[Rfam]
RNA sequence: CCGGACAGGAUGUCCGCCUGAAUAAGACCUGCGAGUUUUCGACAGAAAACUCGGGAUAAAAAGCAUACACGGACGUAUGCUUUUUAUCGGGU
Numbered sequence: 001c002c003g004g005a006c007a008g009g010a011u012g013u014c015c016g017c018c019u020g021a022a023u024a025a026g027a028c029c030u031g032c033g034a035g036u037u038u039u040c041g042a043c044a045g046a047a048a049a050c051u052c053g054g055g056a057u058a059a060a061a062a063g064c065a066u067a068c069a070c071g072g073a074c075g076u077a078u079g080c081u082u083u084u085u086a087u088c089g090g091g092u
Base pairs, nucleotide, nucleotide: 002016003015004014005013006012032053033052034051035050036049037048038047039046040045055088056087057086058085059084060083061082062081063080064079065078066077067076068075
RNA: TD-2 RNA
Organism: Treponema parvum